[Rfam]
About this RNA:
tRNA: a 74-nucleotide RNA from Thermoanaerobacterium sp. RBIITD.

RNA sequence: AGGUUUGUAGCUCAUGCGAUAAGAGCGUACGCCUGAUAAGCGUGAGGUCGAUGGUUAAAGUCCAUCUAAGCCCA
Numbered sequence: 001a002g003g004u005u006u007g008u009a010g011c012u013c014a015u016g017c018g019a020u021a022a023g024a025g026c027g028u029a030c031g032c033c034u035g036a037u038a039a040g041c042g043u044g045a046g047g048u049c050g051a052u053g054g055u056u057a058a059a060g061u062c063c064a065u066c067u068a069a070g071c072c073c074a
Stems, first nucleotide, its partner, number of pairs: 002072006010026004028044005050066005
NCBI's taxonomy places the organism under Bacteria, Bacillati, Bacillota, Thermoanaerobacteraceae, Thermoanaerobacterium.
The family's consensus secondary structure is taken from published work.